Small nucleolar RNA Z279/snoR105/snoR108: a 102-nucleotide RNA from Acer yangbiense. A search with the family's covariance model found it, with a score of 90 bits. For this family Rfam cites "Experimental RNomics: identification of 140 candidates for small non-messenger RNAs in the plant Arabidopsis thaliana" (Marker et al., Curr Biol, 2002).
[Rfam]
RNA sequence: GGGAUAUGAUGAGUGGUCAAUACUCGCAAACUCUGCGAGAUGGGUGUCCGCCUUAGCCUGGUUACGACAAUCAGGGCACUCCCAUCUGUACCAUCUGAUCCC
Numbered sequence: 001g002g003g004a005u006a007u008g009a010u011g012a013g014u015g016g017u018c019a020a021u022a023c024u025c026g027c028a029a030a031c032u033c034u035g036c037g038a039g040a041u042g043g044g045u046g047u048c049c050g051c052c053u054u055a056g057c058c059u060g061g062u063u064a065c066g067a068c069a070a071u072c073a074g075g076g077c078a079c080u081c082c083c084a085u086c087u088g089u090a091c092c093a094u095c096u097g098a099u100c101c102c
Stems, first nucleotide, its partner, number of pairs: 001102004014093004023039005042081005047075002059073004

Lineage of the source: Eukaryota > rosids > Sapindaceae > Hippocastanoideae > Acer. About the family: This family includes the plant snoRNAs known as Z279, snoR105 and snoR108. Rfam links the family to the GO terms nucleolus and RNA processing.